The family of this 75-nucleotide RNA sequence from Eleutherodactylus coqui is "mir-23 microRNA precursor family". A search with the family's covariance model found it, with a score of 67 bits. Rfam links the family to the GO terms gene silencing by miRNA and RISC complex. The family's consensus secondary structure was predicted with PFOLD. On this family, see Chen et al., Genes Dev 2005: "The developmental miRNA profiles of zebrafish as determined by small RNA cloning".

[Rfam]
RNA sequence: GGCUUACGGGAUUCCUGGCAGAGUGAUUUGGAAAUGUGUCUGUAAAAUCACAUUGCCAGGGAUUUCCAAUCAGUC
Numbered sequence: 001g002g003c004u005u006a007c008g009g010g011a012u013u014c015c016u017g018g019c020a021g022a023g024u025g026a027u028u029u030g031g032a033a034a035u036g037u038g039u040c041u042g043u044a045a046a047a048u049c050a051c052a053u054u055g056c057c058a059g060g061g062a063u064u065u066c067c068a069a070u071c072a073g074u075c
Base pairs, nucleotide, nucleotide: 001075002074004072006070009067010066011063012062013061014060015059016058017057018056019055020054021053023051024050025049026048027047028046029045